Metazoan signal recognition particle RNA: a 299-nucleotide sequence from Gongylonema pulchrum. The family's RNA type in Rfam is non-coding RNA gene. The literature on the family includes a 2002 paper in Nucleic Acids Res by Regalia et al., "Prediction of signal recognition particle RNA genes".
RNA sequence: GCCGGGCGUUGUGACGAGCGCCUGUAAUCCAAGUGACUGGGAGGCUUGCGAUGGUGGAUGGAGUGCGAGAGGGAGUCCUGGCUGGUGUGCGACGAUGACGACCGAGCGUCCAGGGCAAGCGUGGCGUCGAUAAGGUGUCACGGCAGGAGUGGUGUGGCACCUGGUCGCACAAUGAGGGGCGUACGGCUCAGGGCCGAAAGGCAGCAGGCAAAAGUCCCCGCGUCAUGACAGUGUCCGGAUAGCGCACGCGAGUCGUCCGCACCAGUCAGCCUUCUCAACACCUUCAGACCCAUCGCUUU
Numbered sequence: 001g002c003c004g005g006g007c008g009u010u011g012u013g014a015c016g017a018g019c020g021c022c023u024g025u026a027a028u029c030c031a032a033g034u035g036a037c038u039g040g041g042a043g044g045c046u047u048g049c050g051a052u053g054g055u056g057g058a059u060g061g062a063g064u065g066c067g068a069g070a071g072g073g074a075g076u077c078c079u080g081g082c083u084g085g086u087g088u089g090c091g092a093c094g095a096u097g098a099c100g101a102c103c104g105a106g107c108g109u110c111c112a113g114g115g116c117a118a119g120c121g122u123g124g125c126g127u128c129g130a131u132a133a134g135g136u137g138u139c140a141c142g143g144c145a146g147g148a149g150u151g152g153u154g155u156g157g158c159a160c161c162u163g164g165u166c167g168c169a170c171a172a173u174g175a176g177g178g179g180c181g182u183a184c185g186g187c188u189c190a191g192g193g194c195c196g197a198a199a200g201g202c203a204g205c206a207g208g209c210a211a212a213a214g215u216c217c218c219c220g221c222g223u224c225a226u227g228a229c230a231g232u233g234u235c236c237g238g239a240u241a242g243c244g245c246a247c248g249c250g251a252g253u254c255g256u257c258c259g260c261a262c263c264a265g266u267c268a269g270c271c272u273u274c275u276c277a278a279c280a281c282c283u284u285c286a287g288a289c290c291c292a293u294c295g296c297u298u299u
Stems, first nucleotide, its partner, number of pairs: 001045003004023007028042003048296007059286005067276007078269012092256005103248002106245004110238002113236005119229001120227008128167004133162010144151002168174002176218005186209003193202003
The signal recognition particle (SRP) is a universally conserved ribonucleoprotein. NCBI's taxonomy places the organism under Eukaryota, Bilateria, Spiruroidea, Gongylonematidae, Gongylonema. A search with the family's covariance model found it, with a score of 244 bits. The base pairs follow the family's consensus structure, which is taken from published work.